[Rfam]
The record is a 139-nucleotide RNA sequence from Paenibacillus sp. TCA20, which matches "c-di-AMP riboswitch aptamer (ydaO/yuaA leader)" in Rfam.

RNA sequence: UAAAAAAGUGUGCCGAAUCUAUCAGAAUAGUACGGGGGACGAUUUACAACAUUUGGGGUGAAUGCAGCAGUUAAGAAAUGCUAGAGUACCUUCUACUCGAACCCGACAACUAACCUCGGAGGCAAUUGGAGGAAAUUUU
Numbered sequence: 001u002a003a004a005a006a007a008g009u010g011u012g013c014c015g016a017a018u019c020u021a022u023c024a025g026a027a028u029a030g031u032a033c034g035g036g037g038g039a040c041g042a043u044u045u046a047c048a049a050c051a052u053u054u055g056g057g058g059u060g061a062a063u064g065c066a067g068c069a070g071u072u073a074a075g076a077a078a079u080g081c082u083a084g085a086g087u088a089c090c091u092u093c094u095a096c097u098c099g100a101a102c103c104c105g106a107c108a109a110c111u112a113a114c115c116u117c118g119g120a121g122g123c124a125a126u127u128g129g130a131g132g133a134a135a136u137u138u139u
Stems, first nucleotide, its partner, number of pairs: 011124004019030002033118005040055002056104003064081003084098004

A search with the family's covariance model found it, with a score of 78 bits.
Taxonomically the source falls in Paenibacillus (Bacteria, Bacillati, Caryophanales, Paenibacillaceae).